This 110-nucleotide RNA sequence from Ascodesmis nigricans belongs to the Rfam family "tRNA". Lineage of the source: Eukaryota > Opisthokonta > Fungi > saccharomyceta > Ascodesmis. It is annotated as a transfer RNA. A search with the family's covariance model found it, with a score of 48 bits. The base pairs follow the family's consensus structure, which is taken from published work.
RNA sequence: GGCAAGAUGGCCGAGCGGUCUAAGGCGCCGCACUCAAGUUUCACAACUUAUCACAUCAAAUGUGGUUUGCGGUCUCGAAAGAGGCGUGGGUUCAAAUCCCACUCUUGUCA
Numbered sequence: 001g002g003c004a005a006g007a008u009g010g011c012c013g014a015g016c017g018g019u020c021u022a023a024g025g026c027g028c029c030g031c032a033c034u035c036a037a038g039u040u041u042c043a044c045a046a047c048u049u050a051u052c053a054c055a056u057c058a059a060a061u062g063u064g065g066u067u068u069g070c071g072g073u074c075u076c077g078a079a080a081g082a083g084g085c086g087u088g089g090g091u092u093c094a095a096a097u098c099c100c101a102c103u104c105u106u107g108u109c110a
Base pairs, nucleotide, nucleotide: 001109002108003107004106005105006104007103010026011025012024028072029071030070031069032068086102087101088100089099090098